[Rfam]
RNA sequence: UCGGGUCUGAUAUGUCUGGUAUUCUUGGGUUGAGCUACAUGUACAACCAGCAUAUUAGACAUAUCCGAUCCUGG
Numbered sequence: 001u002c003g004g005g006u007c008u009g010a011u012a013u014g015u016c017u018g019g020u021a022u023u024c025u026u027g028g029g030u031u032g033a034g035c036u037a038c039a040u041g042u043a044c045a046a047c048c049a050g051c052a053u054a055u056u057a058g059a060c061a062u063a064u065c066c067g068a069u070c071c072u073g074g
Stems, first nucleotide, its partner, number of pairs: 009065014028048004
Dot-bracket structure: ........((((((((((((((.....((((.............))))...)))))))))))))).........

This 74-nucleotide sequence from Steinernema carpocapsae belongs to the Rfam family "mir-50 microRNA precursor family". For this family Rfam cites "An abundant class of tiny RNAs with probable regulatory roles in Caenorhabditis elegans" (Lau et al., Science, 2001). The family's consensus secondary structure was predicted with RNAalifold. Its Rfam clan is "mir-50 clan".